[Rfam]
RNA sequence: AAUAUAUUAGAUCUCCGAGCUUGAUUUUCUAAAGCCUCUGCAAUGAAAAUCAAGCCGAUGGGUUCAUCUGGAAACGGGUGGGCCUCCCGUGUUUGGAAAGGAGAAUGGUUUAGAGCAUU
Numbered sequence: 001a002a003u004a005u006a007u008u009a010g011a012u013c014u015c016c017g018a019g020c021u022u023g024a025u026u027u028u029c030u031a032a033a034g035c036c037u038c039u040g041c042a043a044u045g046a047a048a049a050u051c052a053a054g055c056c057g058a059u060g061g062g063u064u065c066a067u068c069u070g071g072a073a074a075c076g077g078g079u080g081g082g083c084c085u086c087c088c089g090u091g092u093u094u095g096g097a098a099a100g101g102a103g104a105a106u107g108g109u110u111u112a113g114a115g116c117a118u119u
Base pairs, nucleotide, nucleotide: 003113006110012104013103014102015101016100019055020054021053022052023051024050025049026048027047028046029045034041035040060085061084062083063082064081065080066079067078068077069076070075086096087095
Dot-bracket structure: ..(..(.....(((((..(((((((((((....((....))...)))))))))))....(((((((((((....)))))))))))((.......))...))))).....)..)......